Purine riboswitch aptamer: a 102-nucleotide sequence from Metabacillus lacus.

[Rfam]
RNA sequence: AAGAAAUAUGUCAAAUUACGUCGUAUAAUAUUGGGGAUAUGGCCUGAGAGUUUCUACCAAGCUACCGUAAAUGGCUUGACUACGACGAUAUAGAAGAAGCGG
Numbered sequence: 001a002a003g004a005a006a007u008a009u010g011u012c013a014a015a016u017u018a019c020g021u022c023g024u025a026u027a028a029u030a031u032u033g034g035g036g037a038u039a040u041g042g043c044c045u046g047a048g049a050g051u052u053u054c055u056a057c058c059a060a061g062c063u064a065c066c067g068u069a070a071a072u073g074g075c076u077u078g079a080c081u082a083c084g085a086c087g088a089u090a091u092a093g094a095a096g097a098a099g100c101g102g
Base pairs, nucleotide, nucleotide: 019087020086021085022084023083024082025081029049031047032046033045034044035043058078059077060076061075062074063073064072

Background: Taxonomically the source falls in Metabacillus (Bacteria, Bacillota, Caryophanales, Bacillaceae).